This 46-nucleotide sequence from Kolteria novifilia belongs to the Rfam family "Acido-Lenti-1 RNA". The base pairs follow the family's consensus structure, which is taken from published work. The source organism's lineage runs through Bacteria, Pseudomonadati, Planctomycetota, Kolteriaceae and Kolteria. It is annotated as a small RNA.
RNA sequence: CCUGGCACUCACGUGCCAGCCUCUAUUCGGCCGCCGCUUCACGGCU
Dot-bracket structure: .(((((((....))))))).............((((.....)))).